[Rfam]
RNA sequence: CUCUUAUCGAGAGAGGUGGAGGGAAAGGGCCCUAUGAAACCCGGCAACCAAUAUUUUUAGAAGUAUUAAGGUGCCAAUUCCUGCAGAAAGUUCUGCAAGAUAAGAG
Numbered sequence: 001c002u003c004u005u006a007u008c009g010a011g012a013g014a015g016g017u018g019g020a021g022g023g024a025a026a027g028g029g030c031c032c033u034a035u036g037a038a039a040c041c042c043g044g045c046a047a048c049c050a051a052u053a054u055u056u057u058u059a060g061a062a063g064u065a066u067u068a069a070g071g072u073g074c075c076a077a078u079u080c081c082u083g084c085a086g087a088a089a090g091u092u093c094u095g096c097a098a099g100a101u102a103a104g105a106g
Stems, first nucleotide, its partner, number of pairs: 001106008013042001015041003021032003027082003043075004048071002050067004079098001084095004
RNA: SAM riboswitch aptamer (S box leader)